Rfam assigns this 90-nucleotide sequence from Gluconobacter oxydans to the family "Glycine riboswitch aptamer". A search with the family's covariance model found it, with a score of 70 bits. A reference for the family is Babina et al. (2017), "In Vivo Behavior of the Tandem Glycine Riboswitch in Bacillus subtilis", MBio. The organism belongs to Gluconobacter oxydans, within Bacteria.
[Rfam]
RNA sequence: CUGACCGACACGGGAGAGACCAGCCGUCAGGCUGGCGCCGAAGGAGCAACCGCCCCGGAAACUCUCAGGCCAAAGGACCGAGGCGGUCAG
Numbered sequence: 001c002u003g004a005c006c007g008a009c010a011c012g013g014g015a016g017a018g019a020c021c022a023g024c025c026g027u028c029a030g031g032c033u034g035g036c037g038c039c040g041a042a043g044g045a046g047c048a049a050c051c052g053c054c055c056c057g058g059a060a061a062c063u064c065u066c067a068g069g070c071c072a073a074a075g076g077a078c079c080g081a082g083g084c085g086g087u088c089a090g
Stems, first nucleotide, its partner, number of pairs: 006085002009082001011080003020035004037070003040066002044064003050058002